This 98-nucleotide sequence from Coccidioides posadasii belongs to the Rfam family "A. fumigatus snoRNA Afu_263". The family's RNA type in Rfam is C/D-box small nucleolar RNA. Lineage of the source: Eukaryota > Opisthokonta > Ascomycota > Onygenaceae > Coccidioides posadasii.
RNA sequence: UCUUGUGAUGAUUCCCAAUUCUUAAGCAUAGUUCACCUGAAGGUCCCUGGACCACUGAACGACAACCCAUCAUCAUUUUCUUUCACCUUUGUCUGAGU
Numbered sequence: 001u002c003u004u005g006u007g008a009u010g011a012u013u014c015c016c017a018a019u020u021c022u023u024a025a026g027c028a029u030a031g032u033u034c035a036c037c038u039g040a041a042g043g044u045c046c047c048u049g050g051a052c053c054a055c056u057g058a059a060c061g062a063c064a065a066c067c068c069a070u071c072a073u074c075a076u077u078u079u080c081u082u083u084c085a086c087c088u089u090u091g092u093c094u095g096a097g098u
Stems, first nucleotide, its partner, number of pairs: 006018001009017002031060005042053004